Selenocysteine transfer RNA: an 86-nucleotide sequence from Leptobrachium leishanense. Gene Ontology term of the family: triplet codon-amino acid adaptor activity. The match comes from Rfam's covariance-model search (75 bits). The family is grouped with related families in Rfam's "tRNA clan". Lineage of the source: Eukaryota > Metazoa > Euteleostomi > Megophryidae > Leptobrachium.

RNA sequence: GCCUGGAUGAUCCUCAGUGGUCUGAGGUGCAGGCUUCAAACCUGUAGCUGUCCAGCGGCAGAGUGGCUCAACUCCACCCUCCAGGC
Numbered sequence: 001g002c003c004u005g006g007a008u009g010a011u012c013c014u015c016a017g018u019g020g021u022c023u024g025a026g027g028u029g030c031a032g033g034c035u036u037c038a039a040a041c042c043u044g045u046a047g048c049u050g051u052c053c054a055g056c057g058g059c060a061g062a063g064u065g066g067c068u069c070a071a072c073u074c075c076a077c078c079c080u081c082c083a084g085g086c
Stems, first nucleotide, its partner, number of pairs: 001086007009078001012027006028046006048061005063077004